[Rfam]
RNA sequence: GAAUUCUUGUCGGAGUGCCCCUGUGGGGCUGAGACCGUUCAUUCGGGAUCCGCGGAACCUGAUCAGGUUAAUACCUGCGAAGGGAACAAGAGUAAACAUCGU
Numbered sequence: 001g002a003a004u005u006c007u008u009g010u011c012g013g014a015g016u017g018c019c020c021c022u023g024u025g026g027g028g029c030u031g032a033g034a035c036c037g038u039u040c041a042u043u044c045g046g047g048a049u050c051c052g053c054g055g056a057a058c059c060u061g062a063u064c065a066g067g068u069u070a071a072u073a074c075c076u077g078c079g080a081a082g083g084g085a086a087c088a089a090g091a092g093u094a095a096a097c098a099u100c101g102u
Stems, first nucleotide, its partner, number of pairs: 006090005011052004016046001017029005036045002058083003064077004

Background
TPP riboswitch aptamer (THI element): a 102-nucleotide sequence from Erwinia sp. OLSSP12. Rfam links the family to the GO term thiamine pyrophosphate binding. NCBI's taxonomy places the organism under Bacteria, Pseudomonadota, Gammaproteobacteria, Erwiniaceae, Erwinia. The match comes from Rfam's covariance-model search (78 bits).